A member of the RNA family "6S / SsrS RNA" from Atopobacter sp. AH10, 190 nucleotides long. Lineage of the source: Bacteria > Bacillati > Bacilli > Lactobacillales > Atopobacter. About the family: E. coli 6S RNA was the first non coding RNA to be sequenced, but its function was unknown until recently. It consists of 184 nucleotides that fold into an extended hairpin structure with a large single-stranded internal bulge. Pairs were carried over by alignment from the consensus structure, which is taken from published work. It scores 61 bits against the family's covariance model.
RNA sequence: AGAGAUCUGAGAUGUUCGUGGCGUCCUAUCAGUGUUGACCGAACAAUUAUUUUUACUCUAGGGAUUCUAUGUGUGAGAUAGAAUAACAUGCCACAUCACAUGGAAGUUAGCCGAUCUGUCCAAGAAGCCCACCUGCUAAUUUGCGGGUUCAAACUCAAAGGAUGCAUGACACGGCAUCAUCGGAAAUCUA
Numbered sequence: 001a002g003a004g005a006u007c008u009g010a011g012a013u014g015u016u017c018g019u020g021g022c023g024u025c026c027u028a029u030c031a032g033u034g035u036u037g038a039c040c041g042a043a044c045a046a047u048u049a050u051u052u053u054u055a056c057u058c059u060a061g062g063g064a065u066u067c068u069a070u071g072u073g074u075g076a077g078a079u080a081g082a083a084u085a086a087c088a089u090g091c092c093a094c095a096u097c098a099c100a101u102g103g104a105a106g107u108u109a110g111c112c113g114a115u116c117u118g119u120c121c122a123a124g125a126a127g128c129c130c131a132c133c134u135g136c137u138a139a140u141u142u143g144c145g146g147g148u149u150c151a152a153a154c155u156c157a158a159a160g161g162a163u164g165c166a167u168g169a170c171a172c173g174g175c176a177u178c179a180u181c182g183g184a185a186a187u188c189u190a
Stems, first nucleotide, its partner, number of pairs: 002188002006184005012177004017173003032156001034154002036151003039147002061130003065126004076117004086107002091103003